[Rfam]
RNA sequence: AUGAAGUGAUGAUAGAAUUCAUAUGUUAAUUCACUGAAUUACAUUUUUAUGAUGUUAAGAGUGAAUCCCGACAGGUUCUGAUCGU
Numbered sequence: 001a002u003g004a005a006g007u008g009a010u011g012a013u014a015g016a017a018u019u020c021a022u023a024u025g026u027u028a029a030u031u032c033a034c035u036g037a038a039u040u041a042c043a044u045u046u047u048u049a050u051g052a053u054g055u056u057a058a059g060a061g062u063g064a065a066u067c068c069c070g071a072c073a074g075g076u077u078c079u080g081a082u083c084g085u
Base pairs, nucleotide, nucleotide: 001085002084003083004082

This 85-nucleotide RNA from Solanum commersonii belongs to the Rfam family "Small nucleolar RNA snoR14".
It scores 62 bits against the family's covariance model.
The family has 7 seed sequences and 668 matches in Rfam 15.1.
Its Rfam clan is "SNORD110 clan".